[Rfam]
RNA sequence: GAGACACGCUUAUGGGCAGGACUUGUUUCAGUGGGGCUUUGGUGCUCACUGAGUCUGCCUCUUGAAUGCAUCCCU
Numbered sequence: 001g002a003g004a005c006a007c008g009c010u011u012a013u014g015g016g017c018a019g020g021a022c023u024u025g026u027u028u029c030a031g032u033g034g035g036g037c038u039u040u041g042g043u044g045c046u047c048a049c050u051g052a053g054u055c056u057g058c059c060u061c062u063u064g065a066a067u068g069c070a071u072c073c074c075u
Stems, first nucleotide, its partner, number of pairs: 001074001003072002007068001010065003014061001015059004020055003028052008036043002
Dot-bracket structure: (.((..(..(((.(((((.(((.....((((((((((....)).))))))))))))))).).)))..)..)).).
Rfam assigns this 75-nucleotide RNA sequence from Pipistrellus kuhlii to the family "mir-9229 microRNA precursor family".
The base pairs follow the family's consensus structure, which was predicted with RNAalifold.
Rfam 15.1 lists 27,225 matches to the family in 9 species.
The source organism's lineage runs through Eukaryota, Bilateria, Deuterostomia, Eutheria and Pipistrellus.
Rfam links the family to the GO terms miRNA-mediated post-transcriptional gene silencing and RISC complex.